[Rfam]
Notes: The family of this 104-nucleotide RNA from Cytobacillus horneckiae is "SAM riboswitch aptamer (S box leader)". Its family is annotated with regulation of gene expression in the Gene Ontology.
RNA sequence: AUCUUAUCAAGAGAGGUGGAGGGACUGGCCCUUUGAAGCCUCGGCAACAGACUUAACUGAACUGUGCCAAUUCCAGCGAGCUCCAUGAGCUUGACAGAUAGGUA
Numbered sequence: 001a002u003c004u005u006a007u008c009a010a011g012a013g014a015g016g017u018g019g020a021g022g023g024a025c026u027g028g029c030c031c032u033u034u035g036a037a038g039c040c041u042c043g044g045c046a047a048c049a050g051a052c053u054u055a056a057c058u059g060a061a062c063u064g065u066g067c068c069a070a071u072u073c074c075a076g077c078g079a080g081c082u083c084c085a086u087g088a089g090c091u092u093g094a095c096a097g098a099u100a101g102g103u104a
Base pairs, nucleotide, nucleotide: 003102004101005100006099007098008097013042014041015040016039017038021031022030023029025076026075027074028073043068044067045066046065048064049063072096077093078092079091080090081089082088
The base pairs follow the family's consensus structure, which is taken from published work. The match comes from Rfam's covariance-model search (85 bits).